[Rfam]
RNA sequence: AAAAAAGCAGGAUCCUGUGCACUUUACUAGCAGUAUCCCCGUAAACUUUAGGUAUAUGAUGUUCAUCGUUAUUGGGUGAACCUGUGGUCAUGUCCAUGUGUUGGACGUUCCAUGCCAAUCGGUUCAGUAAAUGAUGAUACAUAU
Numbered sequence: 001a002a003a004a005a006a007g008c009a010g011g012a013u014c015c016u017g018u019g020c021a022c023u024u025u026a027c028u029a030g031c032a033g034u035a036u037c038c039c040c041g042u043a044a045a046c047u048u049u050a051g052g053u054a055u056a057u058g059a060u061g062u063u064c065a066u067c068g069u070u071a072u073u074g075g076g077u078g079a080a081c082c083u084g085u086g087g088u089c090a091u092g093u094c095c096a097u098g099u100g101u102u103g104g105a106c107g108u109u110c111c112a113u114g115c116c117a118a119u120c121g122g123u124u125c126a127g128u129a130a131a132u133g134a135u136g137a138u139a140c141a142u143a144u
Base pairs, nucleotide, nucleotide: 005048006047007046011037012036015033016032017031063137064136065135066134067133068132069131070130077126078125079124080123081122082121
RNA: Small nucleolar RNA snoR74
Organism: Eragrostis curvula